[Rfam]
RNA sequence: UCUGCAACAAUCUCGCACUUGGGGCUUACUUACAGUGUACUUGUUACAUCUGACGCCCCGGGAAGGUCUGAGAUGAGCCUCAAACGCUCUAAGAGGGUGCAUGCAUUUUGCAAGGCAAGAACACCAGAAAUCUGCGAGUGGAGUCCUUUAGCCCAGGAUUCUUUAGAUAGGCGUUGCGACUUCUUCGUUGGAAUUUCUUGUGGUCGGCAUUUUAAGUUCAAUCUGCGGGCUAGCUUUUCGCUAGAACUCAAUUCAGACUAAUCUGUUGCAGA
Number, nucleotide and partner (000 for none) at each position: 001u272002c271003u270004g269005c000006a000007a266008c265009a264010a000011u000012c229013u228014c227015g226016c225017a224018c000019u000020u000021g059022g058023g057024g056025c055026u000027u000028a000029c000030u000031u000032a000033c000034a000035g049036u048037g047038u046039a045040c000041u000042u000043g000044u000045u039046a038047c037048a036049u035050c000051u000052g000053a000054c000055g025056c024057c023058c022059c021060g000061g000062g000063a000064a000065g000066g000067u000068c256069u255070g254071a253072g252073a000074u000075g000076a000077g204078c203079c202080u000081c000082a000083a000084a000085c099086g098087c097088u096089c095090u000091a000092a000093g000094a000095g089096g088097g087098u086099g085100c114101a000102u112103g111104c110105a000106u000107u000108u000109u000110g104111c103112a102113a000114g100115g201116c200117a199118a198119g197120a196121a195122c000123a000124c000125c000126a000127g000128a000129a000130a000131u000132c000133u000134g000135c187136g186137a185138g000139u000140g000141g000142a000143g000144u000145c000146c000147u000148u000149u000150a000151g000152c000153c000154c000155a000156g000157g000158a000159u000160u000161c000162u000163u000164u000165a000166g000167a000168u000169a000170g000171g000172c000173g000174u000175u000176g000177c000178g000179a000180c000181u000182u000183c000184u000185u137186c136187g135188u000189u000190g000191g000192a000193a000194u000195u121196u120197c119198u118199u117200g116201u115202g079203g078204u077205c000206g000207g000208c000209a000210u000211u000212u000213u000214a000215a000216g000217u000218u000219c000220a000221a000222u000223c000224u017225g016226c015227g014228g013229g012230c244231u243232a242233g241234c240235u000236u000237u000238u000239c000240g234241c233242u232243a231244g230245a000246a000247c000248u000249c000250a000251a000252u072253u071254c070255a069256g068257a000258c000259u000260a000261a000262u000263c000264u009265g008266u007267u000268g000269c004270a003271g002272a001

Annotation: Rfam assigns this 272-nucleotide RNA sequence from Zophobas morio to the family "Nuclear RNase P". Rfam's curators write: Ribonuclease P (RNase P) is a ubiquitous endoribonuclease, found in archaea, bacteria and eukarya as well as chloroplasts and mitochondria. Its family is annotated with tRNA processing, ribonuclease P complex and ribonuclease P activity in the Gene Ontology. NCBI's taxonomy places the organism under Eukaryota, Eumetazoa, Hexapoda, Neuropteroidea, Zophobas. Rfam classes the family as a ribozyme.